RNA sequence: GAAUGGAAUGAUGAUAAAAGUAAUUUCGAAAAUAUUAAUUUAUUCUGUCGACCAAAAACUCAGACUACAAUUAUCUUAUCAUUU
Numbered sequence: 001g002a003a004u005g006g007a008a009u010g011a012u013g014a015u016a017a018a019a020g021u022a023a024u025u026u027c028g029a030a031a032a033u034a035u036u037a038a039u040u041u042a043u044u045c046u047g048u049c050g051a052c053c054a055a056a057a058a059c060u061c062a063g064a065c066u067a068c069a070a071u072u073a074u075c076u077u078a079u080c081a082u083u084u
Stems, first nucleotide, its partner, number of pairs: 001084006

Overview
A member of the RNA family "Small nucleolar RNA Z155" from Brassica carinata, 84 nucleotides long. NCBI's taxonomy places the organism under Eukaryota, Magnoliopsida, rosids, Brassicaceae, Brassica. The match comes from Rfam's covariance-model search (61 bits).